[Rfam]
RNA sequence: CGAUGGUGGCGAUUUUGGGGACAGAUGUCCGUGUCGUGGGUGUCCUGGGCCGGCGGCGUGGUCGGCGAUCGGGCCUCCUGCCCCCGGGGG
Dot-bracket structure: ...(.(.((.(......((((.....((((..((((((..................))))))..).)))......))))..)))).)...
RNA: NoRC associated RNA, pRNA
Organism: Pongo abelii